[Rfam]
RNA sequence: AGCUUGCCAAUGAUGUCACAAAAUAAAUGUCUGAACUGAUGAUAUCACAGUGAUUUUUUUUAUUUUUAACAUCUUUACUAAAGCAAGCU
Numbered sequence: 001a002g003c004u005u006g007c008c009a010a011u012g013a014u015g016u017c018a019c020a021a022a023a024u025a026a027a028u029g030u031c032u033g034a035a036c037u038g039a040u041g042a043u044a045u046c047a048c049a050g051u052g053a054u055u056u057u058u059u060u061u062a063u064u065u066u067u068a069a070c071a072u073c074u075u076u077a078c079u080a081a082a083g084c085a086a087g088c089u
Stems, first nucleotide, its partner, number of pairs: 002088006
Shown here is an 89-nucleotide sequence from Salmo salar, a member of the family "Small nucleolar RNA SNORD72". About the family: snoRNA HBII-240 belongs to the CD family of snoRNAs. It is the human orthologue of the mouse MBII-240 and is predicted to guide 2'O-ribose methylation of the large 28S rRNA at residue U4590. Its family is annotated with nucleolus and RNA processing in the Gene Ontology. NCBI's taxonomy places the organism under Eukaryota, Opisthokonta, Eumetazoa, Salmoninae, Salmo. On this family, see Huttenhofer et al., EMBO J 2001: "RNomics: an experimental approach that identifies 201 candidates for novel, small, non-messenger RNAs in mouse".